[Rfam]
6S / SsrS RNA: a 184-nucleotide RNA from Vibrio renipiscarius. Rfam classes the family as a non-coding RNA gene. The base pairs follow the family's consensus structure, which is taken from published work. E. coli 6S RNA was the first non coding RNA to be sequenced, but its function was unknown until recently.
RNA sequence: UUUACCCUGGGGUGUACGUUAGUGGGAUUAAGUCCCUGAGCCGAUAAGCAAUCCAAAAGGGUUAGUAUUUGAAGGCUAUUGAGCAAGCUCGGCUCGUACCGAGAAGCCUACGGUCGUCAUUGCUGAUCCGCCUUGAACCUACUGGUUCAAGGGUCCAAAUCUCCAACGGCACUCUGGGGUAUCU
Numbered sequence: 001u002u003u004a005c006c007c008u009g010g011g012g013u014g015u016a017c018g019u020u021a022g023u024g025g026g027a028u029u030a031a032g033u034c035c036c037u038g039a040g041c042c043g044a045u046a047a048g049c050a051a052u053c054c055a056a057a058a059g060g061g062u063u064a065g066u067a068u069u070u071g072a073a074g075g076c077u078a079u080u081g082a083g084c085a086a087g088c089u090c091g092g093c094u095c096g097u098a099c100c101g102a103g104a105a106g107c108c109u110a111c112g113g114u115c116g117u118c119a120u121u122g123c124u125g126a127u128c129c130g131c132c133u134u135g136a137a138c139c140u141a142c143u144g145g146u147u148c149a150a151g152g153g154u155c156c157a158a159a160u161c162u163c164c165a166a167c168g169g170c171a172c173u174c175u176g177g178g179g180u181a182u183c184u
Stems, first nucleotide, its partner, number of pairs: 003181013017168003032154004037149006059129003063125005070119003074115004083107002088103005